mir-317 microRNA precursor family: an 89-nucleotide RNA from Ladona fulva. The match comes from Rfam's covariance-model search (64 bits). NCBI's taxonomy places the organism under Eukaryota, Protostomia, Ecdysozoa, Libelluloidea, Ladona. Its family is annotated with miRNA-mediated post-transcriptional gene silencing and RISC complex in the Gene Ontology.
RNA sequence: UGCCAUUGUGGAGCAGGGAACCACUCUGAGUUCGCUUUGUUUGUGAUACUAGUGAACACAGCUGGUGGUAUCUCAGUUACACAAUGGAC
Dot-bracket structure: .......((((....(((.((.((((((.(.((....................)).).)))..))).)).)).)..)))).........